[Rfam]
RNA sequence: CUCACUAUGUGUAAAUAACACACACGUGUCGGCACAUUUGCCGGGGUGCUCUGCAGCAUGCUGCGGGGUCGGCAUAAUGGGACACGUGGAGGCAUAAC
Numbered sequence: 001c002u003c004a005c006u007a008u009g010u011g012u013a014a015a016u017a018a019c020a021c022a023c024a025c026g027u028g029u030c031g032g033c034a035c036a037u038u039u040g041c042c043g044g045g046g047u048g049c050u051c052u053g054c055a056g057c058a059u060g061c062u063g064c065g066g067g068g069u070c071g072g073c074a075u076a077a078u079g080g081g082a083c084a085c086g087u088g089g090a091g092g093c094a095u096a097a098c
Base pairs, nucleotide, nucleotide: 023088024087025086026085027084028083029082030081035079036078037077038076040073041072042071043070048069049068050067051066052065